[Rfam]
RNA sequence: AAGACAACCAAGAGUCUAUAAAAUGUGUACUGAAGAGCUUGGACGAAACAUUAUGUCUACAC
Numbered sequence: 001a002a003g004a005c006a007a008c009c010a011a012g013a014g015u016c017u018a019u020a021a022a023a024u025g026u027g028u029a030c031u032g033a034a035g036a037g038c039u040u041g042g043a044c045g046a047a048a049c050a051u052u053a054u055g056u057c058u059a060c061a062c
Stems, first nucleotide, its partner, number of pairs: 002017004008042004025062005037044001048056003